[Rfam]
RNA sequence: GAUAACAGUGACGAAUCCUUACAUAGUUACAGAUCUGUGAUGAUUGUUGCAAGAAGAUCGCAUCAUUCAAAGCACAUCUAAGCUGAGCUGUC
Numbered sequence: 001g002a003u004a005a006c007a008g009u010g011a012c013g014a015a016u017c018c019u020u021a022c023a024u025a026g027u028u029a030c031a032g033a034u035c036u037g038u039g040a041u042g043a044u045u046g047u048u049g050c051a052a053g054a055a056g057a058u059c060g061c062a063u064c065a066u067u068c069a070a071a072g073c074a075c076a077u078c079u080a081a082g083c084u085g086a087g088c089u090g091u092c
Stems, first nucleotide, its partner, number of pairs: 002091003006087001
Dot-bracket structure: .(((.(................................................................................).))).
RNA: Small nucleolar RNA SNORD25
Organism: Zea mays